[Rfam]
RNA sequence: CAAUUCCUCUAUGGCCAAGGAGUAACCAACCAGCCAGAACCGAGUUUUGCAUCUGCUGUAGCAAUACAGUGGAUGAAGAGUAAACAGGGCGAAUGUAGUCCGAAACGAAAGUGAACGACAAGAGAGCCUCGAGAACUUUGAUGGAUGCCGGGAGCUGACACUGUCUAUGAUGUGGAAAGCCAUAUGGUAUUAAACGCUAAGGUGAGUUUAAUGCUGCCCGGCGGGGUAUGCGUCGU
Numbered sequence: 001c002a003a004u005u006c007c008u009c010u011a012u013g014g015c016c017a018a019g020g021a022g023u024a025a026c027c028a029a030c031c032a033g034c035c036a037g038a039a040c041c042g043a044g045u046u047u048u049g050c051a052u053c054u055g056c057u058g059u060a061g062c063a064a065u066a067c068a069g070u071g072g073a074u075g076a077a078g079a080g081u082a083a084a085c086a087g088g089g090c091g092a093a094u095g096u097a098g099u100c101c102g103a104a105a106c107g108a109a110a111g112u113g114a115a116c117g118a119c120a121a122g123a124g125a126g127c128c129u130c131g132a133g134a135a136c137u138u139u140g141a142u143g144g145a146u147g148c149c150g151g152g153a154g155c156u157g158a159c160a161c162u163g164u165c166u167a168u169g170a171u172g173u174g175g176a177a178a179g180c181c182a183u184a185u186g187g188u189a190u191u192a193a194a195c196g197c198u199a200a201g202g203u204g205a206g207u208u209u210a211a212u213g214c215u216g217c218c219c220g221g222c223g224g225g226g227u228a229u230g231c232g233u234c235g236u
Stems, first nucleotide, its partner, number of pairs: 012036004019031002023205001025203002040088002044085004048080001050075011126227006148221005154180003159174003185216011
The family of this 236-nucleotide RNA from Trichonephila clavata is "Group II catalytic intron D1-D4-6". About the family: Group II introns are found in rRNA, tRNA and mRNA of organelles in fungi, plants and protists, and also in mRNA in bacteria. Pairs were carried over by alignment from the consensus structure. A reference for the family is Bonen and Vogel (2001), "The ins and outs of group II introns", Trends Genet. NCBI's taxonomy places the organism under Eukaryota, Ecdysozoa, Araneomorphae, Entelegynae, Trichonephila.